[Rfam]
RNA sequence: GCUCCAUCCCCGGGGAGCGUGCGUGCGCUGAGAGGAAGGUUUCGCACCCUUCGACCCGUCGAACCUGAACCCGUUAGCACGGGCGGAGGGAGUGGCCGGGCGUCUUGG
Numbered sequence: 001g002c003u004c005c006a007u008c009c010c011c012g013g014g015g016a017g018c019g020u021g022c023g024u025g026c027g028c029u030g031a032g033a034g035g036a037a038g039g040u041u042u043c044g045c046a047c048c049c050u051u052c053g054a055c056c057c058g059u060c061g062a063a064c065c066u067g068a069a070c071c072c073g074u075u076a077g078c079a080c081g082g083g084c085g086g087a088g089g090g091a092g093u094g095g096c097c098g099g100g101c102g103u104c105u106u107g108g
Base pairs, nucleotide, nucleotide: 007095008094010092011058012057013056014055017028018027019026020025035052036051037050038049039048064089065088066087070083071082072081073080
RNA: TPP riboswitch aptamer (THI element)
Organism: Croceibacterium salegens